[Rfam]
RNA sequence: CAUCCUCUGCCGUGUACGACAGCACGCGCAAACAUUCGCCUUGUCCCUUAAUGACGACCACGGGACGGCGACGGAGACCGGGAGUGCAUGUCCGCCACGCAGCGGGAAGCCCGAUGGUCCCCAAACCGUCCCACUUGAACCCCGGGUUCAAGGUCGUUUCGCGGGCAUCGUCAUGGCGGAGGAUGU
Numbered sequence: 001c002a003u004c005c006u007c008u009g010c011c012g013u014g015u016a017c018g019a020c021a022g023c024a025c026g027c028g029c030a031a032a033c034a035u036u037c038g039c040c041u042u043g044u045c046c047c048u049u050a051a052u053g054a055c056g057a058c059c060a061c062g063g064g065a066c067g068g069c070g071a072c073g074g075a076g077a078c079c080g081g082g083a084g085u086g087c088a089u090g091u092c093c094g095c096c097a098c099g100c101a102g103c104g105g106g107a108a109g110c111c112c113g114a115u116g117g118u119c120c121c122c123a124a125a126c127c128g129u130c131c132c133a134c135u136u137g138a139a140c141c142c143c144g145g146g147u148u149c150a151a152g153g154u155c156g157u158u159u160c161g162c163g164g165g166c167a168u169c170g171u172c173a174u175g176g177c178g179g180a181g182g183a184u185g186u
Base pairs, nucleotide, nucleotide: 002184003183004182005181006180007179008178009177010176011175012174013173014172017170018169019168038154039153040152042150043149046146047145062132063131064130066128067127068126073122074121076119077118078117079116080115086110087109091106092105093104094103095102
RNA: 6S / SsrS RNA